[Rfam]
RNA: tRNA
Organism: Excalfactoria chinensis
RNA sequence: GCAAACAUAGUUUAACCCAAACAUUAGAUUGUGAUUCUAAAAAUAGGAGUUUAACCCUCCUUGUUCGCC
Dot-bracket structure: ((.((((..((((.....)))).(((((.......)))))....(((((.......))))))))).)).